[Rfam]
RNA: SL1 RNA
RNA sequence: GGUUUAAUUACCCAAGUUUGAGGUAAUUGAAUGUUUCGGCCCAAGAUUUAGGCUUCAAUGCCUUCAACUAAAAUUGGAACGUCCUGCAUAUUUGUGGGACAAU
Numbered sequence: 001g002g003u004u005u006a007a008u009u010a011c012c013c014a015a016g017u018u019u020g021a022g023g024u025a026a027u028u029g030a031a032u033g034u035u036u037c038g039g040c041c042c043a044a045g046a047u048u049u050a051g052g053c054u055u056c057a058a059u060g061c062c063u064u065c066a067a068c069u070a071a072a073a074u075u076g077g078a079a080c081g082u083c084c085u086g087c088a089u090a091u092u093u094g095u096g097g098g099a100c101a102a103u
Base pairs, nucleotide, nucleotide: 003031004030005029006028007027008026009025010024011023012022035067036066039062041060081100082099083098084097085096086095087094